[Rfam]
RNA sequence: AGAACCUGCCUUUCAGGCAUCCUCUCCUAAACCUUUCACGGCCGGUCCUUCGGGAUCGGCCUUUUUUUGUCCGGCC
Number, nucleotide and partner (000 for none) at each position: 001a000002g000003a000004a000005c000006c000007u000008g018009c017010c016011u015012u000013u000014c000015a011016g010017g009018c008019a000020u000021c000022c000023u000024c000025u000026c000027c000028u000029a000030a000031a000032c000033c000034u000035u000036u000037c000038a000039c000040g061041g060042c059043c058044g057045g056046u055047c054048c053049u000050u000051c000052g000053g048054g047055a046056u045057c044058g043059g042060c041061c040062u000063u000064u000065u000066u000067u000068u000069g000070u000071c000072c000073g000074g000075c000076c000